[Rfam]
RNA: mir-330 microRNA precursor family
RNA sequence: CUUCGGCGAUCACUGCCUCUCUGGGCCUGUGUCUUAGGCUCUGCAAGAUCAACCGAGCAAAGCACACGGCCUGCAGAGAGGCAGUACCAAAGACC
Number, nucleotide and partner (000 for none) at each position: 001c000002u000003u000004c000005g094006g000007c092008g000009a000010u000011c000012a000013c084014u083015g082016c081017c080018u079019c078020u077021c076022u075023g074024g071025g070026c069027c068028u066029g065030u064031g063032u000033c062034u061035u060036a000037g000038g058039c057040u056041c055042u000043g000044c000045a000046a000047g000048a000049u000050c000051a000052a000053c000054c000055g041056a040057g039058c038059a000060a035061a034062g033063c031064a030065c029066a028067c000068g027069g026070c025071c024072u000073g000074c023075a022076g021077a020078g019079a018080g017081g016082c015083a014084g013085u000086a000087c000088c000089a000090a000091a000092g007093a000094c005095c000